[Rfam]
RNA sequence: GAAGUUCGCCAGACUGCCGCUGGUGCAAGCGUGGAAACACGGCACUGGAGGAACGUCCGGACUGCAUAGGGCAGCGUAGCAGCUAACGGCUGUCCACCGUGAGGUGAGGAUCAGAGCAACAGAGACGUAGUCGGGCAGGCGUACCGCAAGGUAAACCGGCCCGGGUGAAACGGGCAAUCUCUACGCGCAGCAAUACCAAGUAGGCACACGUUGACGGGGCCCCCGGAGUGUGCGGGUAGGUAGCAUCGAGCCGGUGGGGCGACCCCCGGCCCAGAGUAAUGGCAGUCACAUGGGCGCAAGCCCAUGCACAGAAUCCGGCUUAUCGGCGGACUUCACAC
Numbered sequence: 001g002a003a004g005u006u007c008g009c010c011a012g013a014c015u016g017c018c019g020c021u022g023g024u025g026c027a028a029g030c031g032u033g034g035a036a037a038c039a040c041g042g043c044a045c046u047g048g049a050g051g052a053a054c055g056u057c058c059g060g061a062c063u064g065c066a067u068a069g070g071g072c073a074g075c076g077u078a079g080c081a082g083c084u085a086a087c088g089g090c091u092g093u094c095c096a097c098c099g100u101g102a103g104g105u106g107a108g109g110a111u112c113a114g115a116g117c118a119a120c121a122g123a124g125a126c127g128u129a130g131u132c133g134g135g136c137a138g139g140c141g142u143a144c145c146g147c148a149a150g151g152u153a154a155a156c157c158g159g160c161c162c163g164g165g166u167g168a169a170a171c172g173g174g175c176a177a178u179c180u181c182u183a184c185g186c187g188c189a190g191c192a193a194u195a196c197c198a199a200g201u202a203g204g205c206a207c208a209c210g211u212u213g214a215c216g217g218g219g220c221c222c223c224c225g226g227a228g229u230g231u232g233c234g235g236g237u238a239g240g241u242a243g244c245a246u247c248g249a250g251c252c253g254g255u256g257g258g259g260c261g262a263c264c265c266c267c268g269g270c271c272c273a274g275a276g277u278a279a280u281g282g283c284a285g286u287c288a289c290a291u292g293g294g295c296g297c298a299a300g301c302c303c304a305u306g307c308a309c310a311g312a313a314u315c316c317g318g319c320u321u322a323u324c325g326g327c328g329g330a331c332u333u334c335a336c337a338c
Stems, first nucleotide, its partner, number of pairs: 001334010011323001012287007020048007053321001055319001057318005062190004069222004074186005079093005094108001095106004109181002114179002116175002131164006138157002194242004204233006215225003250270005256265003